Background: The record is a 96-nucleotide sequence from Radiobacillus deserti, which matches "c-di-GMP-I riboswitch aptamer" in Rfam. NCBI's taxonomy places the organism under Bacteria, Bacillati, Bacillota, Bacilli, Radiobacillus. It scores 81 bits against the family's covariance model.

RNA sequence: AAGCGAGAAAGGCAAACCCACUGAAAAGCGGGGACGCAAAACUACGGGUCUAAGGCUUUAUAAAACAAGUAAAGCUAGGAUUGCCGGGUUACCGGA
Number, nucleotide and partner (000 for none) at each position: 001a000002a000003g000004c000005g000006a000007g000008a000009a000010a000011g000012g037013c036014a000015a000016a000017c032018c031019c030020a000021c028022u027023g000024a000025a000026a000027a022028g021029c000030g019031g018032g017033g000034a000035c000036g013037c012038a000039a000040a090041a089042c088043u087044a000045c086046g085047g084048g081049u080050c079051u000052a000053a000054g000055g075056c074057u073058u072059u071060a070061u069062a000063a000064a000065a000066c000067a000068a000069g061070u060071a059072a058073a057074g056075c055076u000077a000078g000079g050080a049081u048082u000083g000084c047085c046086g045087g043088g042089u041090u040091a000092c000093c000094g000095g000096a000